[Rfam]
RNA sequence: CAAUCCGAAGCCUGAAUUCACACACGGUUCGAAUGCCCAUCUGGGGUGCCGGUCGCGCUUAUGCGAAGACCGGUCAGAUGUCGCGGCACCGUGGAGGACCAAC
Numbered sequence: 001c002a003a004u005c006c007g008a009a010g011c012c013u014g015a016a017u018u019c020a021c022a023c024a025c026g027g028u029u030c031g032a033a034u035g036c037c038c039a040u041c042u043g044g045g046g047u048g049c050c051g052g053u054c055g056c057g058c059u060u061a062u063g064c065g066a067a068g069a070c071c072g073g074u075c076a077g078a079u080g081u082c083g084c085g086g087c088a089c090c091g092u093g094g095a096g097g098a099c100c101a102a103c
Stems, first nucleotide, its partner, number of pairs: 023093006030086001035084002038080006048074007
Dot-bracket structure: ......................((((((.(....((.((((((....(((((((.............)))))))))))))..)).).))))))..........
RNA: t44 RNA
Organism: Ahniella affigens